A member of the RNA family "mir-25 microRNA precursor family" from Leptobrachium leishanense, 84 nucleotides long.
A search with the family's covariance model found it, with a score of 56 bits.
The base pairs follow the family's consensus structure, which was predicted with RNAalifold.
Rfam 15.1 lists 311 matches to the family in 255 species.

RNA sequence: GGCUUGUGUUGACAGGCAGAGACAGGAGCAACUGCUGGUGUGUUCUGCGAGCAUUGCACUUGUCUCGGUCUGAUAGUGUUUGCG
Numbered sequence: 001g002g003c004u005u006g007u008g009u010u011g012a013c014a015g016g017c018a019g020a021g022a023c024a025g026g027a028g029c030a031a032c033u034g035c036u037g038g039u040g041u042g043u044u045c046u047g048c049g050a051g052c053a054u055u056g057c058a059c060u061u062g063u064c065u066c067g068g069u070c071u072g073a074u075a076g077u078g079u080u081u082g083c084g
Stems, first nucleotide, its partner, number of pairs: 002083002006079004014071004019066005028057004034052003037046002